RNA: U4atac minor spliceosomal RNA
RNA sequence: ACCGUCUUUGUCAGGGGGUGAGCAACUAUCCAAUGAACGCAAAGUGAGGCUAGUUCUGCUGACACCUGUACCAACACUUUACGCGUCGCCUGCCGCUUGCGGCGGGUCGGGCGCAAUUUUUGGGACC
Numbered sequence: 001a002c003c004g005u006c007u008u009u010g011u012c013a014g015g016g017g018g019u020g021a022g023c024a025a026c027u028a029u030c031c032a033a034u035g036a037a038c039g040c041a042a043a044g045u046g047a048g049g050c051u052a053g054u055u056c057u058g059c060u061g062a063c064a065c066c067u068g069u070a071c072c073a074a075c076a077c078u079u080u081a082c083g084c085g086u087c088g089c090c091u092g093c094c095g096c097u098u099g100c101g102g103c104g105g106g107u108c109g110g111g112c113g114c115a116a117u118u119u120u121u122g123g124g125a126c127c
Stems, first nucleotide, its partner, number of pairs: 006018004020059001022057001025054004030049002037045002083114005090105006